RNA sequence: CGUCAGAAUAAUUUUCUCCUUCGUAUAUCCUCGAAAAUAAGGUUCGAGAGUCUCUACCGGGUUACCGUAAACAACCUGACUAUGAAGGCAGGAUUCUUUAUA
Numbered sequence: 001c002g003u004c005a006g007a008a009u010a011a012u013u014u015u016c017u018c019c020u021u022c023g024u025a026u027a028u029c030c031u032c033g034a035a036a037a038u039a040a041g042g043u044u045c046g047a048g049a050g051u052c053u054c055u056a057c058c059g060g061g062u063u064a065c066c067g068u069a070a071a072c073a074a075c076c077u078g079a080c081u082a083u084g085a086a087g088g089c090a091g092g093a094u095u096c097u098u099u100a101u102a
Stems, first nucleotide, its partner, number of pairs: 018088008030048006058078006
RNA: Purine riboswitch aptamer
Organism: Fictibacillus aquaticus